[Rfam]
RNA sequence: ACUGGAAUCAAACUCCUAGCCUUGGCGCCUAAGUGAUGUGUUCCUUGCAUCAUACGGCGCCCUGGCCGUGACCGUUAGCGUCACCAGGGUGCAAGGUAGAAAUGCCUGCAUCUCCCGUAUUUGGAAAGGUGUUUAUGGUUAGUCAAC
Numbered sequence: 001a002c003u004g005g006a007a008u009c010a011a012a013c014u015c016c017u018a019g020c021c022u023u024g025g026c027g028c029c030u031a032a033g034u035g036a037u038g039u040g041u042u043c044c045u046u047g048c049a050u051c052a053u054a055c056g057g058c059g060c061c062c063u064g065g066c067c068g069u070g071a072c073c074g075u076u077a078g079c080g081u082c083a084c085c086a087g088g089g090u091g092c093a094a095g096g097u098a099g100a101a102a103u104g105c106c107u108g109c110a111u112c113u114c115c116c117g118u119a120u121u122u123g124g125a126a127a128g129g130u131g132u133u134u135a136u137g138g139u140u141a142g143u144c145a146a147c
Stems, first nucleotide, its partner, number of pairs: 003141002011133003015129002019066003024061006033053008068084005087113006094107005114124002